[Rfam]
RNA: c-di-GMP-I-GGC riboswitch aptamer
Organism: Senegalia massiliensis
RNA sequence: CUUAAUAAAGGCAAACUUAUCGAAAGUUAAGGACGCAAAGCUAUGGGUCUAAGGAAUGAAUCUAUGAUUGCCAAGCCGCUAAGU
Numbered sequence: 001c002u003u004a005a006u007a008a009a010g011g012c013a014a015a016c017u018u019a020u021c022g023a024a025a026g027u028u029a030a031g032g033a034c035g036c037a038a039a040g041c042u043a044u045g046g047g048u049c050u051a052a053g054g055a056a057u058g059a060a061u062c063u064a065u066g067a068u069u070g071c072c073a074a075g076c077c078g079c080u081a082a083g084u
Stems, first nucleotide, its partner, number of pairs: 003081002011036002016031004021026001034070001040076003044073003047068003